[Rfam]
RNA sequence: AUAUUUUCAGGUGAUGGAGUUCGCCUUUAACUGCGUAAUGCUAAUGACUCCUACAAAAUA
Numbered sequence: 001a002u003a004u005u006u007u008c009a010g011g012u013g014a015u016g017g018a019g020u021u022c023g024c025c026u027u028u029a030a031c032u033g034c035g036u037a038a039u040g041c042u043a044a045u046g047a048c049u050c051c052u053a054c055a056a057a058a059u060a
Stems, first nucleotide, its partner, number of pairs: 010025004016051006033041002
A member of the RNA family "Fluoride riboswitch aptamer (crcB RNA motif)" from Clostridium sp. Maddingley MBC34-26, 60 nucleotides long. Rfam 15.1 lists 2,293 matches to the family in 1,982 species. The base pairs follow the family's consensus structure, which is taken from published work. A search with the family's covariance model found it, with a score of 56 bits.